[Rfam]
RNA sequence: GAGUUCUUUGUUGUGGCGAGGAUAAGGAGUUUUAGCUUUGUAUUCGGAGGGAAACCGAUUUCUCGUAGCAUUUUUUGUGUGGGAGAGAGGUCUUAAUAGGGCCUUUUAGUCACAGCAUUGAAACCCGAAGCCGGUCGAUCUAUUCCUGAGCAGGAUGAAGUCGCUCUUACGAGUGAUGGAGGUCCGCAGGGUUGUUGUUCUGCAAAACACUCCUCUGACUUGGGAAUAGUGGUGAAAGGCCAAUCAAGGCCGGUGACAGCUGGUU
Numbered sequence: 001g002a003g004u005u006c007u008u009u010g011u012u013g014u015g016g017c018g019a020g021g022a023u024a025a026g027g028a029g030u031u032u033u034a035g036c037u038u039u040g041u042a043u044u045c046g047g048a049g050g051g052a053a054a055c056c057g058a059u060u061u062c063u064c065g066u067a068g069c070a071u072u073u074u075u076u077g078u079g080u081g082g083g084a085g086a087g088a089g090g091u092c093u094u095a096a097u098a099g100g101g102c103c104u105u106u107u108a109g110u111c112a113c114a115g116c117a118u119u120g121a122a123a124c125c126c127g128a129a130g131c132c133g134g135u136c137g138a139u140c141u142a143u144u145c146c147u148g149a150g151c152a153g154g155a156u157g158a159a160g161u162c163g164c165u166c167u168u169a170c171g172a173g174u175g176a177u178g179g180a181g182g183u184c185c186g187c188a189g190g191g192u193u194g195u196u197g198u199u200c201u202g203c204a205a206a207a208c209a210c211u212c213c214u215c216u217g218a219c220u221u222g223g224g225a226a227u228a229g230u231g232g233u234g235a236a237a238g239g240c241c242a243a244u245c246a247a248g249g250c251c252g253g254u255g256a257c258a259g260c261u262g263g264u265u
Stems, first nucleotide, its partner, number of pairs: 005121002009117009020045004026039004049056002061086004068080004089103004124263002127260001131253006140229011151217001153185004160177007189214003194210002197208002231241003

The family of this 265-nucleotide part of an RNA from Methanobrevibacter ruminantium is "Archaeal large subunit ribosomal RNA". The family's consensus secondary structure is taken from published work. The organism belongs to Methanobrevibacter ruminantium, within Archaea.